A member of the RNA family "terC RNA" from Sphingopyxis bauzanensis, 68 nucleotides long. A search with the family's covariance model found it, with a score of 55 bits.

RNA sequence: GUUGCGAGCCGGGCCCCUCUGGCGGACGAUGUGUUAGAGUGCAUUGUCUGCGAUGUCGGAUCGCUCCC
Numbered sequence: 001g002u003u004g005c006g007a008g009c010c011g012g013g014c015c016c017c018u019c020u021g022g023c024g025g026a027c028g029a030u031g032u033g034u035u036a037g038a039g040u041g042c043a044u045u046g047u048c049u050g051c052g053a054u055g056u057c058g059g060a061u062c063g064c065u066c067c068c
Base pairs, nucleotide, nucleotide: 006062007061009059010058011057012056022051023050024049025048026047027046028045029044030043031042032041033040034039